[Rfam]
RNA sequence: CGAGCCGGCUUUCGAUGGAUUCCUCGGGGUUCCAUGGUCAGCCGUUUUUCCUAGAGGUCUAUUUACCUCCACCUAAGGGCCCUGGUUUUCCAGUGGCCCUAUUUU
Numbered sequence: 001c002g003a004g005c006c007g008g009c010u011u012u013c014g015a016u017g018g019a020u021u022c023c024u025c026g027g028g029g030u031u032c033c034a035u036g037g038u039c040a041g042c043c044g045u046u047u048u049u050c051c052u053a054g055a056g057g058u059c060u061a062u063u064u065a066c067c068u069c070c071a072c073c074u075a076a077g078g079g080c081c082c083u084g085g086u087u088u089u090c091c092a093g094u095g096g097c098c099c100u101a102u103u104u105u
Stems, first nucleotide, its partner, number of pairs: 001044002004042002007039003015035004054069005076100006082093004

This 105-nucleotide RNA from Rhizobium etli belongs to the Rfam family "Alphaproteobacterial ar15". The base pairs follow the family's consensus structure. Rfam 15.1 lists 316 matches to the family in 177 species. The source organism's lineage runs through Bacteria, Pseudomonadati, Pseudomonadota, Hyphomicrobiales and Rhizobium etli. A reference for the family is Caswell et al. (2012), "Identification of two small regulatory RNAs linked to virulence in Brucella abortus 2308", Mol Microbiol. It is one of the family's seed sequences.